[Rfam]
RNA sequence: ACAAUCCGGGUCUGUGGUUGAAAGUCGAUGCCAGUUGCAGGCGAAACGAUCCACGUAAGCAGUAUAAGUACUGUGAGCACGGUGCAGCUUAGAAGUAAGUCCUGCCGUAGGGAAGGAAGGACAUGCCGGCGUAACGGCGGCAUGGGCCGGUCAUUCUUUUUACGAGAGAAGCAGUAGUGGGGAGCGGAUGCUUAGGAGCGAACCUUCCAGCAGGCGGGUGUGGGGGCGAAAACCAGGUCAGCCGGGGCGU
Number, nucleotide and partner (000 for none) at each position: 001a250002c249003a000004a000005u246006c245007c244008g243009g242010g000011u000012c241013u240014g239015u235016g234017g233018u232019u231020g000021a000022a000023a000024g000025u000026c000027g000028a221029u220030g219031c041032c000033a089034g088035u087036u086037g085038c084039a083040g000041g031042c000043g000044a000045a000046a000047c000048g000049a000050u082051c081052c000053a000054c000055g000056u000057a000058a074059g000060c000061a000062g000063u000064a000065u000066a000067a000068g000069u000070a000071c000072u000073g000074u058075g000076a000077g000078c000079a000080c228081g051082g050083u039084g038085c037086a036087g035088c034089u033090u000091a000092g000093a000094a000095g000096u000097a000098a000099g000100u000101c214102c213103u212104g211105c210106c164107g163108u162109a161110g160111g159112g158113a157114a000115g000116g000117a000118a000119g000120g000121a000122c000123a000124u000125g000126c000127c000128g000129g000130c000131g000132u000133a000134a000135c000136g000137g000138c000139g000140g000141c000142a000143u000144g000145g000146g000147c000148c000149g000150g000151u000152c000153a000154u000155u000156c000157u113158u112159u111160u110161u109162a108163c107164g106165a000166g000167a000168g207169a206170a205171g204172c000173a000174g000175u000176a000177g199178u198179g000180g000181g000182g000183a192184g191185c190186g000187g000188a000189u000190g185191c184192u183193u000194a000195g000196g000197a000198g178199c177200g000201a000202a000203c000204c171205u170206u169207c168208c000209a000210g105211c104212a103213g102214g101215c000216g000217g000218g000219u030220g029221u028222g000223g000224g000225g000226g000227c000228g080229a000230a000231a019232a018233c017234c016235a015236g000237g000238u000239c014240a013241g012242c009243c008244g007245g006246g005247g000248c000249g002250u001
This 250-nucleotide RNA belongs to the Rfam family "raiA RNA". Rfam classes the family as a riboswitch.